[Rfam]
RNA sequence: GGCUUAAAGCGUUCGUAGCUGGACUCUUAAGUCUCUUGGGAAAUCCGCCGGCUCAACCGGCGGGCGUCCAAGAGAUACUGAGUGUCUAGGAACCGGAAGAGGUAAGAGGUACUUCGGGGGUAGGAGUGAAAUCCUGUAAUCCUCGAGGGACCACCGAUGGCGAAGGCAUCUUACCAGGACGGCUUCGACAGUGAGGAACGAAAGCUGGGGGAGCGAACCGGAUUAGAUACCCGGGUAGUCCCAGCCGUAAACGAUGCGCGUUAGGUGUACUGGUGACCACGAGUCACCUGGGUGCCGAAGGGAAACCGUGAAACGUGCCGCCUGGGAAGUACGGUCGCAAGGCUGAAACUUAAAGGAAU
Numbered sequence: 001g002g003c004u005u006a007a008a009g010c011g012u013u014c015g016u017a018g019c020u021g022g023a024c025u026c027u028u029a030a031g032u033c034u035c036u037u038g039g040g041a042a043a044u045c046c047g048c049c050g051g052c053u054c055a056a057c058c059g060g061c062g063g064g065c066g067u068c069c070a071a072g073a074g075a076u077a078c079u080g081a082g083u084g085u086c087u088a089g090g091a092a093c094c095g096g097a098a099g100a101g102g103u104a105a106g107a108g109g110u111a112c113u114u115c116g117g118g119g120g121u122a123g124g125a126g127u128g129a130a131a132u133c134c135u136g137u138a139a140u141c142c143u144c145g146a147g148g149g150a151c152c153a154c155c156g157a158u159g160g161c162g163a164a165g166g167c168a169u170c171u172u173a174c175c176a177g178g179a180c181g182g183c184u185u186c187g188a189c190a191g192u193g194a195g196g197a198a199c200g201a202a203a204g205c206u207g208g209g210g211g212a213g214c215g216a217a218c219c220g221g222a223u224u225a226g227a228u229a230c231c232c233g234g235g236u237a238g239u240c241c242c243a244g245c246c247g248u249a250a251a252c253g254a255u256g257c258g259c260g261u262u263a264g265g266u267g268u269a270c271u272g273g274u275g276a277c278c279a280c281g282a283g284u285c286a287c288c289u290g291g292g293u294g295c296c297g298a299a300g301g302g303a304a305a306c307c308g309u310g311a312a313a314c315g316u317g318c319c320g321c322c323u324g325g326g327a328a329g330u331a332c333g334g335u336c337g338c339a340a341g342g343c344u345g346a347a348a349c350u351u352a353a354a355g356g357a358a359u
Base pairs, nucleotide, nucleotide: 001322002321003320009319011199012198013197014196016193018192019191020190022086023085024084026082027081028080030079031078032075033074034073035072036071037070038069039068040067045063046062047061048060049059050058051057090186091185092184093182094181095180101175102174103173104172105171106170107169108152109151112148113147114146115145116144117143118142119141123134124133125132160167161166204245205244206243207242208241209240213239214238218234219233220232221231256318257317258316259315260314261313264296265295266294267293268292270290272288273287274286275285276284277283300307301306324351325350326349333344334343335342336341
The family of this 359-nucleotide part of an RNA from Methanolacinia petrolearia is "Archaeal small subunit ribosomal RNA". Its family is annotated with ribosome and structural constituent of ribosome in the Gene Ontology. Taxonomically the source falls in Methanolacinia petrolearia (Archaea, Methanobacteriati, Methanomicrobia, Methanomicrobiaceae). A reference for the family is Yusupov et al. (2001), "Crystal structure of the ribosome at 5.5 A resolution", Science. The family is grouped with related families in Rfam's "SSU clan". Pairs were carried over by alignment from the consensus structure, which is taken from published work. It is one of the family's seed sequences.